Nucleotides: 100
Stems, first nucleotide, its partner, number of pairs: 009029002011025002014023001039054005056073004063085006
Number, partner (000 for none) and nucleotide at each position: 001000u002000g003000u004000g005000u006000c007000u008000u009029g010028a011025a012024a013000u014023g015000a016000c017000a018000u019000u020000a021000a022000a023014c024012u025011u026000a027000c028010u029009c030000u031000g032000g033000u034000g035000c036000g037000g038000a039054u040053g041052g042051g043050a044000u045000a046000u047000c048000u049000c050043u051042c052041c053040c054039g055000c056073c057072u058071g059070g060000u061000u062000u063085c064084u065083u066082g067081c068080u069000u070059c071058c072057a073056g074000u075000u076000a077000a078000a079000a080068a081067g082066c083065a084064a085063g086000u087000g088000g089000u090000g091000g092000u093000g094000c095000c096000a097000a098000a099000u100000c
A member of the RNA family "wcaG RNA", 100 nucleotides long. Pairs were carried over by alignment from the consensus structure, which is taken from published work. The family's RNA type in Rfam is cis-regulatory element. It is one of the family's seed sequences.